[Rfam]
RNA sequence: UAUCUCUGGUUCCAUUGCAUUUAACCGAGAAAAUCUUUCGCCUUUUACUAAAGAUUUCCGUGCAAAGGGACACUUUAUGAGUGUUUUGAAAUUUUUGCAAUCCCCUCGAAAGAGCGGGAU
Numbered sequence: 001u002a003u004c005u006c007u008g009g010u011u012c013c014a015u016u017g018c019a020u021u022u023a024a025c026c027g028a029g030a031a032a033a034u035c036u037u038u039c040g041c042c043u044u045u046u047a048c049u050a051a052a053g054a055u056u057u058c059c060g061u062g063c064a065a066a067g068g069g070a071c072a073c074u075u076u077a078u079g080a081g082u083g084u085u086u087u088g089a090a091a092u093u094u095u096u097g098c099a100a101u102c103c104c105c106u107c108g109a110a111a112g113a114g115c116g117g118g119a120u
Stems, first nucleotide, its partner, number of pairs: 004081003009071005015065005031057008099120001101119004106114001
Shown here is a 120-nucleotide RNA sequence from Caenorhabditis angaria, a member of the family "U5 spliceosomal RNA". Rfam's curators write: U5 RNA is a component of both types of known spliceosome. The precise function of this molecule is unknown, though it is known that the 5' loop is required for splice site selection and p220 binding, and that both the 3' stem-loop and the Sm site are important for Sm protein binding and cap methylation. Rfam classes the family as a spliceosomal small nuclear RNA. For this family Rfam cites "The uRNA database" (Zwieb, Nucleic Acids Res, 1997).